[Rfam]
RNA sequence: CUUUCAUCAUGAGUGGCGGAGGGACUGGCCCUUUGAAGCCACGGCAACCAUCUUUAUGAAACGGUGCCAAUUCCAGCGAGUGUAUUCUCGAAAGAUGAUGC
Number, nucleotide and partner (000 for none) at each position: 001c000002u100003u000004u098005c097006a096007u095008c094009a000010u000011g000012a000013g042014u041015g040016g039017c038018g000019g000020a000021g031022g030023g029024a000025c076026u075027g074028g073029c023030c022031c021032u000033u000034u000035g000036a000037a000038g017039c016040c015041a014042c013043g068044g067045c066046a065047a000048c064049c063050a000051u059052c058053u000054u000055u000056a000057u000058g052059a051060a000061a000062c000063g049064g048065u046066g045067c044068c043069a000070a000071u000072u093073c028074c027075a026076g025077c090078g089079a088080g087081u000082g000083u000084a000085u000086u000087c080088u079089c078090g077091a000092a000093a072094g008095a007096u006097g005098a004099u000100g002101c000
A member of the RNA family "SAM riboswitch aptamer (S box leader)" from Dialister sp. CAG:486, 101 nucleotides long.